[Rfam]
The record is a 115-nucleotide RNA sequence from Capsella rubella, which matches "Small nucleolar RNA Z152/R70/R12/" in Rfam. It scores 99 bits against the family's covariance model. Gene Ontology terms of the family: nucleolus and RNA processing. For this family Rfam cites "Identification of 66 box C/D snoRNAs in Arabidopsis thaliana: extensive gene duplications generated multiple isoforms predicting new ribosomal RNA 2'-O-methylation sites" (Barneche et al., J Mol Biol, 2001). Rfam classes the family as a C/D-box small nucleolar RNA.
RNA sequence: UGUGCGAUGAUGAUAAAAUAGCACGAAGGUGCGUGAAGGGCAGAGGACAAAGCAAUGAGAAUUGUUUUGCCGUGAGCUCUCUUUAUUUAAACGACUUCUCCUUCCACUGAGCAUA
Dot-bracket structure: (((((.........................................................................................................)))))